TPP riboswitch aptamer (THI element): a 126-nucleotide RNA.
RNA sequence: AUUGACUCAAAGGGGUGCCUCAAUAGAGGCUGAGAUUAUACUCUUUGUAACUGAUCUGGAAAAUCGCAAGCAAACUCUUAUUUUGCUUUGCGGGUGACCAGCGUAGUGAUUGGGUCGUUGAUGACA
Numbered sequence: 001a002u003u004g005a006c007u008c009a010a011a012g013g014g015g016u017g018c019c020u021c022a023a024u025a026g027a028g029g030c031u032g033a034g035a036u037u038a039u040a041c042u043c044u045u046u047g048u049a050a051c052u053g054a055u056c057u058g059g060a061a062a063a064u065c066g067c068a069a070g071c072a073a074a075c076u077c078u079u080a081u082u083u084u085g086c087u088u089u090g091c092g093g094g095u096g097a098c099c100a101g102c103g104u105a106g107u108g109a110u111u112g113g114g115u116c117g118u119u120g121a122u123g124a125c126a
Base pairs, nucleotide, nucleotide: 006114007113008112009111010110011044012043013042014041016038017030018029019028020027021026050107051106052105053104056101057100058099059098
The family's consensus secondary structure is taken from published work.